[Rfam]
RNA sequence: CAAUUGGUCUUUUCGCAUUGAUGAAUAACACGUCCAUUCAAUAGGUAACUAUUGAAAAUGCAUCGGGUGAAUUGCAAGAACAUCCAAUUUAACCAAUUGGACAAUUUGCAGCGAAGUGCUUUUCGGCAGAAUGAUUUAUCAUUUGGAAAGUAAACGUUCAACGACUAGAAGGUGAGUUAUGCCAACAAUAAUCCUUCCACGAGUGCCCGACAACCCGUCAAUAAUUGAUGGGUUGAUGACAUAGUCUGAACAAGUAGGUAACUACUUG
Numbered sequence: 001c002a003a004u005u006g007g008u009c010u011u012u013u014c015g016c017a018u019u020g021a022u023g024a025a026u027a028a029c030a031c032g033u034c035c036a037u038u039c040a041a042u043a044g045g046u047a048a049c050u051a052u053u054g055a056a057a058a059u060g061c062a063u064c065g066g067g068u069g070a071a072u073u074g075c076a077a078g079a080a081c082a083u084c085c086a087a088u089u090u091a092a093c094c095a096a097u098u099g100g101a102c103a104a105u106u107u108g109c110a111g112c113g114a115a116g117u118g119c120u121u122u123u124c125g126g127c128a129g130a131a132u133g134a135u136u137u138a139u140c141a142u143u144u145g146g147a148a149a150g151u152a153a154a155c156g157u158u159c160a161a162c163g164a165c166u167a168g169a170a171g172g173u174g175a176g177u178u179a180u181g182c183c184a185a186c187a188a189u190a191a192u193c194c195u196u197c198c199a200c201g202a203g204u205g206c207c208c209g210a211c212a213a214c215c216c217g218u219c220a221a222u223a224a225u226u227g228a229u230g231g232g233u234u235g236a237u238g239a240c241a242u243a244g245u246c247u248g249a250a251c252a253a254g255u256a257g258g259u260a261a262c263u264a265c266u267u268g
Stems, first nucleotide, its partner, number of pairs: 005036003009032001011030001013028001040052001063210004068205002073110006083101005111157002161247001163246005213233009253266005
A member of the RNA family "Group I catalytic intron" from Circinella minor, 268 nucleotides long. The organism belongs to Circinella, within Eukaryota. The literature on the family includes a 1990 paper in Annu Rev Biochem by Cech, "Self-splicing of group I introns". Pairs were carried over by alignment from the consensus structure, which is taken from published work. It scores 98 bits against the family's covariance model. Rfam links the family to the GO term Group I intron splicing.